[Rfam]
RNA sequence: CGUGUGCUGGAGGAUGAAGUAAGGAGUGAUCCAUCGGCUAAGUGUUUUCCCACUGUGCUGACACUCACAUUGCUGACAGUGCACG
Numbered sequence: 001c002g003u004g005u006g007c008u009g010g011a012g013g014a015u016g017a018a019g020u021a022a023g024g025a026g027u028g029a030u031c032c033a034u035c036g037g038c039u040a041a042g043u044g045u046u047u048u049c050c051c052a053c054u055g056u057g058c059u060g061a062c063a064c065u066c067a068c069a070u071u072g073c074u075g076a077c078a079g080u081g082c083a084c085g
Stems, first nucleotide, its partner, number of pairs: 002084007009074002012032004017027001034061005042053003
This 85-nucleotide RNA sequence belongs to the Rfam family "Small nucleolar RNA SNORD71". The base pairs follow the family's consensus structure, which was predicted with RNAalifold. Rfam classes the family as an H/ACA-box small nucleolar RNA. It is one of the family's seed sequences. From the family's description: snoRNA HBII-239 belongs to the family of C/D snoRNAs.It is the human orthologue of the mouse MBII-239 described and is predicted to guide 2'O-ribose methylation of 5.8S rRNA on residue U14.